This 357-nucleotide part of an RNA from Methanobacterium paludis belongs to the Rfam family "Archaeal large subunit ribosomal RNA".
Pairs were carried over by alignment from the consensus structure, which is taken from published work.
Rfam's curators put it in the seed alignment.
RNA sequence: UAGGGUAAACCAGCUAAGGGAAAUCGGCAAAAUAGCCCCGUAACUUAGGGAGAAGGGGUGCCAGCUGUGCGAGCAGCUGGUCUCAGUGACAAGGGGGGCCCGACUGUUUAAUAAAAACAUAGCUCCCAGCUAGCCCGAAAGGGUGUGUACUGGGGGCGACACCUGCCCAGUGCCGGCACGUGAAGCCGGGGUUCAACCCGGUGAAGCGCCGGUAAACGGCGGGGGUAACUAUAACCCUCUUAAGGUAGCGAAAUGCCUUGCCGGACAAGUACCGGCCUGCAUGAAUGGUAGAACGAGGUCCCUACUGUCCCUAGCUGGAACCUAGUGAACCUGCUAUUCUGGUGCACAAGCCAGAGA
Numbered sequence: 001u002a003g004g005g006u007a008a009a010c011c012a013g014c015u016a017a018g019g020g021a022a023a024u025c026g027g028c029a030a031a032a033u034a035g036c037c038c039c040g041u042a043a044c045u046u047a048g049g050g051a052g053a054a055g056g057g058g059u060g061c062c063a064g065c066u067g068u069g070c071g072a073g074c075a076g077c078u079g080g081u082c083u084c085a086g087u088g089a090c091a092a093g094g095g096g097g098g099c100c101c102g103a104c105u106g107u108u109u110a111a112u113a114a115a116a117a118c119a120u121a122g123c124u125c126c127c128a129g130c131u132a133g134c135c136c137g138a139a140a141g142g143g144u145g146u147g148u149a150c151u152g153g154g155g156g157c158g159a160c161a162c163c164u165g166c167c168c169a170g171u172g173c174c175g176g177c178a179c180g181u182g183a184a185g186c187c188g189g190g191g192u193u194c195a196a197c198c199c200g201g202u203g204a205a206g207c208g209c210c211g212g213u214a215a216a217c218g219g220c221g222g223g224g225g226u227a228a229c230u231a232u233a234a235c236c237c238u239c240u241u242a243a244g245g246u247a248g249c250g251a252a253a254u255g256c257c258u259u260g261c262c263g264g265a266c267a268a269g270u271a272c273c274g275g276c277c278u279g280c281a282u283g284a285a286u287g288g289u290a291g292a293a294c295g296a297g298g299u300c301c302c303u304a305c306u307g308u309c310c311c312u313a314g315c316u317g318g319a320a321c322c323u324a325g326u327g328a329a330c331c332u333g334c335u336a337u338u339c340u341g342g343u344g345c346a347c348a349a350g351c352c353a354g355a356g357a
Base pairs, nucleotide, nucleotide: 001324002323003322004321010318011317012316013315014314015313016312018310019309020308035059036058037057038056039055044049060081061080062079063078064077065076066075067074068073082086094303095302096301097300098299099298100297101295102294105119106118107117122157123156124155125154126153127152128151129150130147133144134143135142136141161289162288163287165220166219167218170217171216172213173212174211175210176209179208180207181206186201187200188199189198190197221239222238223237224236225235226234240244260276261275262274263273264272338355339354340353341352342351